[Rfam]
Nucleotides: 119
Stems, first nucleotide, its partner, number of pairs: 003113001012104005019055003023051001025050005034042002061086011087096002
Number, partner (000 for none) and nucleotide at each position: 001000u002000a003113g004000g005000a006000a007000u008000g009000u010000c011000g012104u013103c014102u015101c016100c017000g018000a019055g020054c021053c022000u023051g024000a025050u026049c027048g028047c029046c030000u031000a032000a033000a034042a035041a036000u037000g038000c039000a040000c041035u042034u043000c044000a045000u046029g047028g048027c049026g050025a051023c052000u053021g054020g055019c056000c057000g058000a059000u060000a061086g062085g063084g064083u065082g066081u067080u068079u069078c070077u071076g072000g073000a074000a075000a076071c077070g078069g079068a080067a081066a082065c083064g084063c085062c086061u087096c088095c089000c090000a091000u092000u093000g094000c095088g096087g097000a098000a099000a100016g101015g102014a103013g104012a105000a106000a107000c108000a109000c110000a111000a112000a113003u114000u115000g116000c117000c118000c119000a
The family of this 119-nucleotide RNA from Thermovirga lienii is "Molybdenum/Tungsten riboswitch aptamer (Moco RNA motif)". The source organism's lineage runs through Bacteria, Synergistota, Synergistia, Thermovirga and Thermovirga lienii. It scores 64 bits against the family's covariance model.